[Rfam]
RNA sequence: UGGACAGAUUACUGUAUCCGACUGUAUUCACGGCAAUAGGGGAUUACACUGUUUUUAAACGGAAAGUGUAUCAAUUAACAUAAUAGACUACU
Numbered sequence: 001u002g003g004a005c006a007g008a009u010u011a012c013u014g015u016a017u018c019c020g021a022c023u024g025u026a027u028u029c030a031c032g033g034c035a036a037u038a039g040g041g042g043a044u045u046a047c048a049c050u051g052u053u054u055u056u057a058a059a060c061g062g063a064a065a066g067u068g069u070a071u072c073a074a075u076u077a078a079c080a081u082a083a084u085a086g087a088c089u090a091c092u
Base pairs, nucleotide, nucleotide: 002091004089009086010085011084013082014081015080017078020076021075023073024072026071027070029068030067031066034061035053036052037051038050039049

Rfam assigns this 92-nucleotide RNA from Nicotiana attenuata to the family "MIR6152 microRNA precursor family". A search with the family's covariance model found it, with a score of 70 bits. Its family is annotated with RISC complex and miRNA-mediated post-transcriptional gene silencing in the Gene Ontology.